[Rfam]
Nucleotides: 156
Stems, first nucleotide, its partner, number of pairs: 003154001005152003009146001011145010021134005027129001029127001035123003041119003048112004054105002060099001063097001072088003
Number, partner (000 for none) and nucleotide at each position: 001000u002000c003154u004000a005152g006151a007150a008000c009146u010000c011145g012144a013143g014142a015141u016140a017139u018138g019137g020136g021134c022133u023132g024131a025130a026000u027129a028000c029127u030000a031000a032000a033000c034000a035123a036122u037121a038000u039000c040000u041119g042118g043117g044000c045000c046000g047000u048112a049111g050110g051109a052000c053000a054105a055104a056000u057000u058000c059000a060099g061000a062000c063097u064000u065000c066000u067000u068000c069000a070000u071000u072088g073087u074086u075000g076000c077000u078000a079000u080000a081000a082000u083000u084000u085000g086074g087073a088072c089000u090000u091000g092000a093000a094000a095000a096000c097063g098000a099060c100000c101000u102000u103000u104055u105054u106000a107000a108000a109051u110050c111049u112048u113000g114000g115000a116000c117043u118042c119041c120000a121037u122036a123035u124000g125000a126000a127029a128000u129027u130025u131024u132023u133022a134021g135000g136020c137019c138018u139017a140016u141015g142014u143013c144012u145011u146009a147000u148000c149000u150007u151006u152005u153000c154003a155000u156000c